[Rfam]
RNA sequence: CACACACAGGAGUGGUUAAGAUGGGAGAGCCAUCAAAACCGUCCGGUGCUAACAGCCGUUAGUCACUAUCCUGUGGAGGUAUAACCGGAAAAGGAGUAUUUAC
Numbered sequence: 001c002a003c004a005c006a007c008a009g010g011a012g013u014g015g016u017u018a019a020g021a022u023g024g025g026a027g028a029g030c031c032a033u034c035a036a037a038a039c040c041g042u043c044c045g046g047u048g049c050u051a052a053c054a055g056c057c058g059u060u061a062g063u064c065a066c067u068a069u070c071c072u073g074u075g076g077a078g079g080u081a082u083a084a085c086c087g088g089a090a091a092a093g094g095a096g097u098a099u100u101u102a103c
Stems, first nucleotide, its partner, number of pairs: 001078001003076001005075006014040002022032002025030001048063006
Dot-bracket structure: (.(.((((((...((......((.(....)))......)).......((((((....))))))......))))))).).........................

Shown here is a 103-nucleotide RNA sequence from Candidatus Odyssella acanthamoebae, a member of the family "rpsB sRNA".
The organism belongs to Candidatus Odyssella, within Bacteria.
The family has 4 seed sequences and 245 matches in Rfam 15.1.
It is annotated as a small RNA.
The base pairs follow the family's consensus structure, which is taken from published work.
For this family Rfam cites "Identification of candidate structured RNAs in the marine organism 'Candidatus Pelagibacter ubique'" (Meyer et al., BMC Genomics, 2009).